[Rfam]
RNA sequence: AAUUACCAGUGGCCGAAUCCCCGGGAACCCGGGGUACGGGGGAAUUUUUACCCGGAGCGGGGUGAAUCCGCGCGUUAUUAAGGAGGUGAAAAUAAGACGCGCGGUAGGGUGCCCUCUACCCGAACCCAUCAACUAACCCCGGAGGCUAGAGGAGGGAAAAA
Numbered sequence: 001a002a003u004u005a006c007c008a009g010u011g012g013c014c015g016a017a018u019c020c021c022c023g024g025g026a027a028c029c030c031g032g033g034g035u036a037c038g039g040g041g042g043a044a045u046u047u048u049u050a051c052c053c054g055g056a057g058c059g060g061g062g063u064g065a066a067u068c069c070g071c072g073c074g075u076u077a078u079u080a081a082g083g084a085g086g087u088g089a090a091a092a093u094a095a096g097a098c099g100c101g102c103g104g105u106a107g108g109g110u111g112c113c114c115u116c117u118a119c120c121c122g123a124a125c126c127c128a129u130c131a132a133c134u135a136a137c138c139c140c141g142g143a144g145g146c147u148a149g150a151g152g153a154g155g156g157a158a159a160a161a
Stems, first nucleotide, its partner, number of pairs: 011147004019034006037141005046059001060127003068104009107121004

The family of this 161-nucleotide RNA from Desulfofundulus salinus is "c-di-AMP riboswitch aptamer (ydaO/yuaA leader)". Lineage of the source: Bacteria > Bacillota > Clostridia > Peptococcaceae > Desulfofundulus.